[Rfam]
RNA sequence: UAGCCCAUCGGGGCCUUGGAUAGCUGCUGU
Dot-bracket structure: ..((((....))))..(((....)))....
RNA: XIST RNA A repeat
Organism: Erinaceus europaeus